This 72-nucleotide sequence from Anopheles stephensi belongs to the Rfam family "mir-965 microRNA precursor family". Pairs were carried over by alignment from the consensus structure, which was predicted with RNAalifold. Lineage of the source: Eukaryota > Panarthropoda > Altocrustacea > Culicoidea > Neocellia.
[Rfam]
RNA sequence: UUCUGAACGGGGGAUGCUGUACGCUCUAUGUGCUAAAAAUAUCCAUAAGCGUAUAGCUUUUCCCAUUUAGCG
Dot-bracket structure: ..(((((.(((.((..(((((..((.((((.............))))))..)))))..)).))).)))))..